[Rfam]
RNA: FMN riboswitch aptamer (RFN element)
Organism: Thermoanaerobacter brockii
Nucleotides: 119
Stems, first nucleotide, its partner, number of pairs: 003117008017029003031099002033088002035048004043086002051064003068084005090102003
Number, partner (000 for none) and nucleotide at each position: 001000g002000u003117a004116a005115a006114u007113c008112u009111u010110c011000g012000g013000g014000g015000c016000a017029g018028g019027g020000u021000g022000a023000a024000a025000u026000u027019c028018c029017c030000g031099a032098c033088c034087g035048g036047c037046g038045g039000u040000a041000u042000a043086g044085c045038c046037c047036g048035c049000g050000a051064g052063c053062c054000g055000c056000g057000c058000a059000u060000g061000c062053g063052g064051u065000c066000g067000a068084u069083u070082u071081g072080g073000u074000g075000a076000a077000a078000u079000u080072c081071c082070a083069a084068a085044g086043c087034c088033g089000a090102c091101a092100g093000u094000g095000a096000a097000a098032g099031u100092c101091u102090g103000g104000a105000g106000g107000g108000g109000a110010g111009a112008a113007g114006a115005u116004u117003u118000u119000c